[Rfam]
RNA sequence: CGGCCGUUAACCGAUCGUUAGCCUUUACAGGCGUUUACUACGGCCAUCCAGUGAUCUGGAUUCUUACCAAGUGGUUGGAGCCACUUUGUUUGACGCCUCCCUGUUAAAACUCCUGAGAGCCGCCUUACCCGCGGCUCUUUUUUU
Numbered sequence: 001c002g003g004c005c006g007u008u009a010a011c012c013g014a015u016c017g018u019u020a021g022c023c024u025u026u027a028c029a030g031g032c033g034u035u036u037a038c039u040a041c042g043g044c045c046a047u048c049c050a051g052u053g054a055u056c057u058g059g060a061u062u063c064u065u066a067c068c069a070a071g072u073g074g075u076u077g078g079a080g081c082c083a084c085u086u087u088g089u090u091u092g093a094c095g096c097c098u099c100c101c102u103g104u105u106a107a108a109a110c111u112c113c114u115g116a117g118a119g120c121c122g123c124c125u126u127a128c129c130c131g132c133g134g135c136u137c138u139u140u141u142u143u144u
Stems, first nucleotide, its partner, number of pairs: 001042002004013001014036001021032004047060004069086006092105004115139009
This 144-nucleotide RNA from Manganibacter manganicus belongs to the Rfam family "Alphaproteobacterial sRNA BjrC1505". The pairing is the family consensus, mapped onto this sequence. The match comes from Rfam's covariance-model search (70 bits). Lineage of the source: Bacteria > Pseudomonadati > Pseudomonadota > Hyphomicrobiales > Manganibacter.